[Rfam]
RNA sequence: GCCGAGCCUUGUAACGUGGGCUUGUGACCCGAGUGGGGGCAUAAAGAUGAUGUGACAUUGAUUUAGCUGCAAAGGGUUGGGUUCGAUGUGGCAAAUUUCUAGCCUGCCCAUUCCAAGCUGAGAGUUGUCUCAUAUGGUUCUUGCGAAAGCUUGGACCAUCUGAAUCCUAGAGCGGAGGGCACUGCGUCAGGUUGGCUUUACAGAGCAACGAUAACCUCUCGCUCCUAGCAGUAGAAGGAUAAUGGGCUAGUACUGUUUAGAUUCGGAUGGCACAAUGGGCUGGUCUAACUUUUACAUCU
Numbered sequence: 001g002c003c004g005a006g007c008c009u010u011g012u013a014a015c016g017u018g019g020g021c022u023u024g025u026g027a028c029c030c031g032a033g034u035g036g037g038g039g040c041a042u043a044a045a046g047a048u049g050a051u052g053u054g055a056c057a058u059u060g061a062u063u064u065a066g067c068u069g070c071a072a073a074g075g076g077u078u079g080g081g082u083u084c085g086a087u088g089u090g091g092c093a094a095a096u097u098u099c100u101a102g103c104c105u106g107c108c109c110a111u112u113c114c115a116a117g118c119u120g121a122g123a124g125u126u127g128u129c130u131c132a133u134a135u136g137g138u139u140c141u142u143g144c145g146a147a148a149g150c151u152u153g154g155a156c157c158a159u160c161u162g163a164a165u166c167c168u169a170g171a172g173c174g175g176a177g178g179g180c181a182c183u184g185c186g187u188c189a190g191g192u193u194g195g196c197u198u199u200a201c202a203g204a205g206c207a208a209c210g211a212u213a214a215c216c217u218c219u220c221g222c223u224c225c226u227a228g229c230a231g232u233a234g235a236a237g238g239a240u241a242a243u244g245g246g247c248u249a250g251u252a253c254u255g256u257u258u259a260g261a262u263u264c265g266g267a268u269g270g271c272a273c274a275a276u277g278g279g280c281u282g283g284u285c286u287a288a289c290u291u292u293u294a295c296a297u298c299u
Base pairs, nucleotide, nucleotide: 001040002039003038004023005022006021007020008019009018028037029036030035049298050297051296052295053294055292057290058288059287060286063283064282065281066280067279070277071276074273076271077270078269079264080263081262082261083260085258086257088256089255090254091253094251099250100249101248102247103246104245105244106243108238109237111236112235113234115232117229118228119227120226122224123223124222125221127166130163131162132161134159135158136157137156138155139154140153143150144149167172174219175218176217177216178215185210186209187208192203193202194201

Shown here is a 299-nucleotide sequence from Jatropha curcas, a member of the family "Plant signal recognition particle RNA". NCBI's taxonomy places the organism under Eukaryota, Embryophyta, Pentapetalae, Jatropheae, Jatropha. On this family, see Rosenblad et al., Nucleic Acids Res 2003: "SRPDB: Signal Recognition Particle Database". The family's RNA type in Rfam is non-coding RNA gene.